Rfam assigns this 74-nucleotide sequence to the family "DUF3800-IX RNA". From the family's description: Actinobacteria, Firmicutes (1 example), Nitrospirae, Proteobacteria, Verrucomicrobia (1 example). The family's RNA type in Rfam is small RNA.
RNA sequence: CCGCCCCCGACGACAAGGUAGCCACAUGAGGCUGUCUUCCGUAACUUUGAGUACGGAUAGUCGGGGGUGUUUUA
Numbered sequence: 001c002c003g004c005c006c007c008c009g010a011c012g013a014c015a016a017g018g019u020a021g022c023c024a025c026a027u028g029a030g031g032c033u034g035u036c037u038u039c040c041g042u043a044a045c046u047u048u049g050a051g052u053a054c055g056g057a058u059a060g061u062c063g064g065g066g067g068u069g070u071u072u073u074a
Base pairs, nucleotide, nucleotide: 002069003068004067005066006065007064008063009062010061011060017036018035019034020033021032022031023030038057039056040055041054042053